The record is an 83-nucleotide RNA sequence from Populus deltoides, which matches "MIR5643 microRNA precursor family" in Rfam. The source organism's lineage runs through Eukaryota, Euphyllophyta, Malpighiales, Saliceae and Populus. Its family is annotated with RISC complex and miRNA-mediated post-transcriptional gene silencing in the Gene Ontology.
RNA sequence: GUGUAGCCAAAGUCCAUAUGAGUCUUUGGCUUUGUGUCUUCUAACAAGGAUACAAUUCUUAGGCUUUUAAGAUCCGGUUGCGG
Numbered sequence: 001g002u003g004u005a006g007c008c009a010a011a012g013u014c015c016a017u018a019u020g021a022g023u024c025u026u027u028g029g030c031u032u033u034g035u036g037u038c039u040u041c042u043a044a045c046a047a048g049g050a051u052a053c054a055a056u057u058c059u060u061a062g063g064c065u066u067u068u069a070a071g072a073u074c075c076g077g078u079u080g081c082g083g
Stems, first nucleotide, its partner, number of pairs: 002082007012073003020066006028058002032055009